[Rfam]
RNA sequence: GCCACAUUGAAUUUUUCGUUCCUUGCCUUUGCAGAUUGGUGGCUGAUCUACGUCAAAGGCUGAUUAACCCGUAAGGAGCAGUAAUG
Numbered sequence: 001g002c003c004a005c006a007u008u009g010a011a012u013u014u015u016u017c018g019u020u021c022c023u024u025g026c027c028u029u030u031g032c033a034g035a036u037u038g039g040u041g042g043c044u045g046a047u048c049u050a051c052g053u054c055a056a057a058g059g060c061u062g063a064u065u066a067a068c069c070c071g072u073a074a075g076g077a078g079c080a081g082u083a084a085u086g
Stems, first nucleotide, its partner, number of pairs: 018079007025060006033049003
The record is an 86-nucleotide RNA sequence from Haemophilus influenzae, which matches "RpsF leader" in Rfam. The family's RNA type in Rfam is cis-regulatory leader. It scores 44 bits against the family's covariance model. Conserved and widely distributed to many bacterial species RNA structure. It precedes operon containing rpsF, which encodes ribosomal protein S6. Gene Ontology terms of the family: negative regulation of translation and protein binding. NCBI's taxonomy places the organism under Bacteria, Pseudomonadati, Pseudomonadota, Pasteurellales, Haemophilus influenzae.